[Rfam]
RNA sequence: AAUGCUAUGAUGAGAUUAAACACUGGAAUGUGUUGAUGGGCAGUGGUUCUGAUCUCUCAAGGUCUAACCGUGAGCCCCUCUAAUAAACGACUUCUCCUUCCACUGAGCAUU
Numbered sequence: 001a002a003u004g005c006u007a008u009g010a011u012g013a014g015a016u017u018a019a020a021c022a023c024u025g026g027a028a029u030g031u032g033u034u035g036a037u038g039g040g041c042a043g044u045g046g047u048u049c050u051g052a053u054c055u056c057u058c059a060a061g062g063u064c065u066a067a068c069c070g071u072g073a074g075c076c077c078c079u080c081u082a083a084u085a086a087a088c089g090a091c092u093u094c095u096c097c098u099u100c101c102a103c104u105g106a107g108c109a110u111u
Stems, first nucleotide, its partner, number of pairs: 001111005
Small nucleolar RNA Z152/R70/R12/: a 111-nucleotide RNA from Cephalotus follicularis. Rfam links the family to the GO terms RNA processing and nucleolus. Rfam 15.1 lists 604 matches to the family in 220 species.